Shown here is a 115-nucleotide sequence, a member of the family "LOOT RNA". By type it is a small RNA.
RNA sequence: UGCCUAAACCUUGUAGGAAUAUAAGGCACGGCAGAAAGACCUCGUGAGCAGUAAGCUCUUGUCAGAGCGCUCACGAGGCUGUAUCCCGAAAGGAAUGCAGGUAGGGCAACCUAUC
Numbered sequence: 001u002g003c004c005u006a007a008a009c010c011u012u013g014u015a016g017g018a019a020u021a022u023a024a025g026g027c028a029c030g031g032c033a034g035a036a037a038g039a040c041c042u043c044g045u046g047a048g049c050a051g052u053a054a055g056c057u058c059u060u061g062u063c064a065g066a067g068c069g070c071u072c073a074c075g076a077g078g079c080u081g082u083a084u085c086c087c088g089a090a091a092g093g094a095a096u097g098c099a100g101g102u103a104g105g106g107c108a109a110c111c112u113a114u115c
Stems, first nucleotide, its partner, number of pairs: 001033004009026007040078010055068005080099005086093002100115006